[Rfam]
RNA sequence: GUUUAUGGUGAGUUUUGUUGGUUUGCCUUCAGCUGCGUUCGGUGUUUGCUGUGCAAAUCCAUGCAAAGCCCGCUGUACCC
Number, nucleotide and partner (000 for none) at each position: 001g000002u000003u000004u077005a076006u075007g074008g073009u072010g071011a000012g069013u068014u067015u066016u065017g064018u063019u000020g060021g059022u057023u056024u055025g054026c053027c000028u051029u000030c000031a050032g049033c048034u000035g000036c000037g000038u000039u000040c000041g000042g000043u000044g000045u000046u000047u000048g033049c032050u031051g028052u000053g026054c025055a024056a023057a022058u000059c021060c020061a000062u000063g018064c017065a016066a015067a014068g013069c012070c000071c010072g009073c008074u007075g006076u005077a004078c000079c000080c000
RNA: mir-19 microRNA precursor family
Organism: Oryzias latipes